[Rfam]
RNA sequence: GGCAGAGUAGGAAGUAAUGCGUUAAGUGCUUAAGGAUGGGACGUUGUCUUAAGACGAAAGUUGAAAUCUGCGGUAUUACUUUCGCGUUCGCUGUA
Numbered sequence: 001g002g003c004a005g006a007g008u009a010g011g012a013a014g015u016a017a018u019g020c021g022u023u024a025a026g027u028g029c030u031u032a033a034g035g036a037u038g039g040g041a042c043g044u045u046g047u048c049u050u051a052a053g054a055c056g057a058a059a060g061u062u063g064a065a066a067u068c069u070g071c072g073g074u075a076u077u078a079c080u081u082u083c084g085c086g087u088u089c090g091c092u093g094u095a
Stems, first nucleotide, its partner, number of pairs: 002094004010083010020072003026055002029053007039089005059069002062066001

A member of the RNA family "THF (Tetrahydrofolate) riboswitch aptamer" from Orenia marismortui, 95 nucleotides long. For this family Rfam cites "A eubacterial riboswitch class that senses the coenzyme tetrahydrofolate" (Ames et al., Chem Biol, 2010). The base pairs follow the family's consensus structure, which is taken from published work. Rfam's curators write: Tetrahydrofolate (THF) riboswitch was first reported for Ames et al. as an RNA motif in 5' untranslated (5'-UTR)regions of folate transport and biosynthesis genes in Firmicutes genomes. The match comes from Rfam's covariance-model search (78 bits).